[Rfam]
RNA sequence: GCGGUACCGGUUCACGUCCCCAGACUCCCGCGAGACUCUGCGCGCGUGCCCUGAGGCGACCCGGCGACC
Numbered sequence: 001g002c003g004g005u006a007c008c009g010g011u012u013c014a015c016g017u018c019c020c021c022a023g024a025c026u027c028c029c030g031c032g033a034g035a036c037u038c039u040g041c042g043c044g045c046g047u048g049c050c051c052u053g054a055g056g057c058g059a060c061c062c063g064g065c066g067a068c069c
Stems, first nucleotide, its partner, number of pairs: 003069003007064004015058004021053003
L31-Actinobacteria ribosomal protein leader: a 69-nucleotide RNA from Actinomadura craniellae. Rfam classes the family as a cis-regulatory leader. It scores 46 bits against the family's covariance model.